[Rfam]
RNA sequence: UUAGCGCUCUUUGGGGAGUAGCCUGCUUCCGAUGUUCGGAAGAGUUCGUAUCAACAUACCUGGCCACAUGCCAUGGUACGAACACCUCUCGGUUGGCGAGACCAUCGAUAUAUCCAUGCCUGAUGGUCGGGCGUGUGGAUGUGUCGUGGACUCAGCGCCUGACCGGAGA
Numbered sequence: 001u002u003a004g005c006g007c008u009c010u011u012u013g014g015g016g017a018g019u020a021g022c023c024u025g026c027u028u029c030c031g032a033u034g035u036u037c038g039g040a041a042g043a044g045u046u047c048g049u050a051u052c053a054a055c056a057u058a059c060c061u062g063g064c065c066a067c068a069u070g071c072c073a074u075g076g077u078a079c080g081a082a083c084a085c086c087u088c089u090c091g092g093u094u095g096g097c098g099a100g101a102c103c104a105u106c107g108a109u110a111u112a113u114c115c116a117u118g119c120c121u122g123a124u125g126g127u128c129g130g131g132c133g134u135g136u137g138g139a140u141g142u143g144u145c146g147u148g149g150a151c152u153c154a155g156c157g158c159c160u161g162a163c164c165g166g167a168g169a
Base pairs, nucleotide, nucleotide: 026042027041028040044083045082046081047080048079049078050077051076052075053074061073062072063071064070087169088168089167090166

The family of this 169-nucleotide RNA sequence from Marinobacter antarcticus is "Manganese Mn2+ riboswitch aptamer (yybP-ykoY)". A search with the family's covariance model found it, with a score of 64 bits. The organism belongs to Marinobacter, within Bacteria.